Rfam assigns this 46-nucleotide sequence from Aedes aegypti to the family "Histone 3' UTR stem-loop". Taxonomically the source falls in Stegomyia (Eukaryota, Altocrustacea, Dicondylia, Panorpida). It scores 39 bits against the family's covariance model. The base pairs follow the family's consensus structure, which is taken from published work. The literature on the family includes a 1995 paper in Nucleic Acids Res by Williams and Marzluff, "The sequence of the stem and flanking sequences at the 3' end of histone mRNA are critical determinants for the binding of the stem-loop binding protein". Rfam 15.1 lists 44,596 matches to the family in 976 species.
[Rfam]
RNA sequence: UAAACGGCUCUUUUCAGAGCCACCAAUUAAUAUCAAGAGAGUAAUU
Numbered sequence: 001u002a003a004a005c006g007g008c009u010c011u012u013u014u015c016a017g018a019g020c021c022a023c024c025a026a027u028u029a030a031u032a033u034c035a036a037g038a039g040a041g042u043a044a045u046u
Stems, first nucleotide, its partner, number of pairs: 006021006